[Rfam]
RNA: UnaL2 LINE 3' element
RNA sequence: AGCUUGAAUGCAAUGUAAGUCGCUUUGGAUAAAAGUGUCUGCUAAAUGCAUUAAU
Numbered sequence: 001a002g003c004u005u006g007a008a009u010g011c012a013a014u015g016u017a018a019g020u021c022g023c024u025u026u027g028g029a030u031a032a033a034a035g036u037g038u039c040u041g042c043u044a045a046a047u048g049c050a051u052u053a054a055u
Stems, first nucleotide, its partner, number of pairs: 014044001015042003021037006